[Rfam]
RNA sequence: AGCCGACUGGCGCCGAAUCCCGAACCCAGGGAACCGGGGACCCACCUCAUGGGGUGAAUCCGGCCACCACGCCGGUAGGGCAUCUCCACGCCCGAACCCGUCAGCUAACCCGGUAGGUGUGAUGGAGAGGACGA
Numbered sequence: 001a002g003c004c005g006a007c008u009g010g011c012g013c014c015g016a017a018u019c020c021c022g023a024a025c026c027c028a029g030g031g032a033a034c035c036g037g038g039g040a041c042c043c044a045c046c047u048c049a050u051g052g053g054g055u056g057a058a059u060c061c062g063g064c065c066a067c068c069a070c071g072c073c074g075g076u077a078g079g080g081c082a083u084c085u086c087c088a089c090g091c092c093c094g095a096a097c098c099c100g101u102c103a104g105c106u107a108a109c110c111c112g113g114u115a116g117g118u119g120u121g122a123u124g125g126a127g128a129g130g131a132c133g134a
Stems, first nucleotide, its partner, number of pairs: 011119004018032003033114006043051002052099003060075004078093004
This 134-nucleotide RNA sequence from Nonomuraea fuscirosea belongs to the Rfam family "c-di-AMP riboswitch aptamer (ydaO/yuaA leader)". The pairing is the family consensus, mapped onto this sequence. Its family is annotated with cyclic-di-AMP binding and regulation of gene expression in the Gene Ontology.